[Rfam]
RNA sequence: GCCCAGGGUAUGUUCACGGGGCGAUGCUGCCCUCCCAGCUGGCCCAUGGGUGACCCUGGGAACAUUAACUGCCUCACAACGUUUGUGCCUCAGUUACCCGUAGAUGUAGUGAGGGUAACAAUACUUACUCUCGUUGGUGAUAAGGAACAGCU
Numbered sequence: 001g002c003c004c005a006g007g008g009u010a011u012g013u014u015c016a017c018g019g020g021g022c023g024a025u026g027c028u029g030c031c032c033u034c035c036c037a038g039c040u041g042g043c044c045c046a047u048g049g050g051u052g053a054c055c056c057u058g059g060g061a062a063c064a065u066u067a068a069c070u071g072c073c074u075c076a077c078a079a080c081g082u083u084u085g086u087g088c089c090u091c092a093g094u095u096a097c098c099c100g101u102a103g104a105u106g107u108a109g110u111g112a113g114g115g116u117a118a119c120a121a122u123a124c125u126u127a128c129u130c131u132c133g134u135u136g137g138u139g140a141u142a143a144g145g146a147a148c149a150g151c152u
Base pairs, nucleotide, nucleotide: 002060003059004058005057006056007055008054009053019032020031021030022029074140075139076138077137079107080106081105082104083103084102085101086100087099112131113130114129115128116127117126118125

Source information
A member of the RNA family "Small nucleolar RNA ACA59", 152 nucleotides long. The family has 3 seed sequences and 55 matches in Rfam 15.1. Rfam links the family to the GO terms RNA processing and nucleolus. By type it is an H/ACA-box small nucleolar RNA.